[Rfam]
The record is a 61-nucleotide RNA sequence from Halococcus salifodinae, which matches "S15-Halobacteria ribosomal protein leader" in Rfam.
RNA sequence: AUGGGAACAGCACGGCCGCAAAUCUGACACGCCCUCGCGGGCUCCGGGAUUGCGGUAGUGU
Numbered sequence: 001a002u003g004g005g006a007a008c009a010g011c012a013c014g015g016c017c018g019c020a021a022a023u024c025u026g027a028c029a030c031g032c033c034c035u036c037g038c039g040g041g042c043u044c045c046g047g048g049a050u051u052g053c054g055g056u057a058g059u060g061u
Base pairs, nucleotide, nucleotide: 010061011060012059013058015056016055017054018053019052020051021050024048025047031042032041033040034039
Lineage of the source: Archaea > Methanobacteriati > Halobacteriales > Halococcus > Halococcus salifodinae. Rfam's curators put it in the seed alignment. Clan: Ribosomal Protein S15 Leader clan.